[Rfam]
RNA sequence: CCCACCGCUUACGCGGUGGGCUAUUUCAUUCCGUCGCUGCGCGACU
Numbered sequence: 001c002c003c004a005c006c007g008c009u010u011a012c013g014c015g016g017u018g019g020g021c022u023a024u025u026u027c028a029u030u031c032c033g034u035c036g037c038u039g040c041g042c043g044a045c046u
Stems, first nucleotide, its partner, number of pairs: 001020008033045005
Overview: Rfam assigns this 46-nucleotide sequence from Candidatus Korobacter versatilis to the family "Acido-Lenti-1 RNA". Lineage of the source: Bacteria > Terriglobia > Terriglobales > Candidatus Korobacter > Candidatus Korobacter versatilis. The sequence is in the family's curated seed alignment.